The record is a 118-nucleotide sequence from Sciurus vulgaris, which matches "Small nucleolar RNA SNORA26" in Rfam. For this family Rfam cites "RNomics: an experimental approach that identifies 201 candidates for novel, small, non-messenger RNAs in mouse" (Huttenhofer et al., EMBO J, 2001).
RNA sequence: GUGCCUUUUAAGGCUGAUGCAGUGCUUUAAGAGGCUAACACUGAAGGGUAAAGAAAACCAUAAAACCCAGAGAAGAGAUUGCAAAACUCCUCUUUGAAUCCUGUCUGGAUUCAAAGCU
Number, nucleotide and partner (000 for none) at each position: 001g000002u050003g049004c048005c047006u046007u045008u044009u043010a042011a000012g000013g039014c000015u037016g036017a000018u034019g000020c031021a000022g000023u000024g000025c000026u000027u000028u000029a000030a000031g020032a000033g000034g018035c000036u016037a015038a000039c013040a000041c000042u010043g009044a008045a007046g006047g005048g004049u003050a002051a000052a000053g000054a000055a000056a000057a000058c108059c107060a106061u000062a000063a000064a000065a000066c000067c000068c096069a095070g094071a093072g092073a091074a000075g089076a088077g087078a000079u086080u085081g000082c000083a000084a000085a080086a079087c077088u076089c075090c000091u073092c072093u071094u070095u069096g068097a000098a000099u000100c000101c000102u000103g000104u000105c000106u060107g059108g058109a000110u000111u000112c000113a000114a000115a000116g000117c000118u000
Rfam's curators write: The snoRNA HBI-6 belong to the H/ACA family of snoRNAs, guiding the pseudouridylation of position U4522 if the 28S rRNA. HBI-6 is the human orthologue of mouse MBI-6 snoRNA.
Gene Ontology terms of the family: RNA processing and nucleolus.